Record summary: The family of this 103-nucleotide RNA sequence is "DUF3577 RNA". The base pairs follow the family's consensus structure, which is taken from published work. The sequence is in the family's curated seed alignment.

[Rfam]
RNA sequence: CGAAUCGGAUAGUGCGGGAAACCGCAUGAAACUCGCCUGUAAUGCCGGCAUCACCUUCGGGUGACGGCGACUUUUUUCAAAUGCCGCACUUUGCGGCACUUCA
Numbered sequence: 001c002g003a004a005u006c007g008g009a010u011a012g013u014g015c016g017g018g019a020a021a022c023c024g025c026a027u028g029a030a031a032c033u034c035g036c037c038u039g040u041a042a043u044g045c046c047g048g049c050a051u052c053a054c055c056u057u058c059g060g061g062u063g064a065c066g067g068c069g070a071c072u073u074u075u076u077u078c079a080a081a082u083g084c085c086g087c088a089c090u091u092u093g094c095g096g097c098a099c100u101u102c103a
Stems, first nucleotide, its partner, number of pairs: 012027006033070005052063004082098006